[Rfam]
RNA sequence: GGACGGCGUCGUGACUGGCGCCGGGUGGAUCACCACCGGGGAGCGACGACGUCCCGCGAGGGGCGCAGGCCAUGAGGUCGCCCGCCUGGGCCUCUCCG
Numbered sequence: 001g002g003a004c005g006g007c008g009u010c011g012u013g014a015c016u017g018g019c020g021c022c023g024g025g026u027g028g029a030u031c032a033c034c035a036c037c038g039g040g041g042a043g044c045g046a047c048g049a050c051g052u053c054c055c056g057c058g059a060g061g062g063g064c065g066c067a068g069g070c071c072a073u074g075a076g077g078u079c080g081c082c083c084g085c086c087u088g089g090g091c092c093u094c095u096c097c098g
Stems, first nucleotide, its partner, number of pairs: 003052003007048006015040002017086004025036004075093005